[Rfam]
RNA sequence: AUACUCCCUCCGUCCCAUAAUGUAAGAUGUUUUUCAACACUACACUAGUGUUAAAAAGUGUCUUACAUUGUGGGACGGAGGAAGUAC
Number, nucleotide and partner (000 for none) at each position: 001a000002u000003a085004c084005u083006c000007c081008c080009u079010c078011c077012g000013u075014c074015c073016c072017a071018u000019a069020a068021u067022g066023u065024a064025a063026g062027a061028u060029g059030u058031u057032u056033u055034u054035c000036a052037a051038c050039a049040c048041u047042a000043c000044a000045c000046u000047a041048g040049u039050g038051u037052u036053a000054a034055a033056a032057a031058g030059u029060g028061u027062c026063u025064u024065a023066c022067a021068u020069u019070g000071u017072g016073g015074g014075a013076c000077g011078g010079a009080g008081g007082a000083a005084g004085u003086a000087c000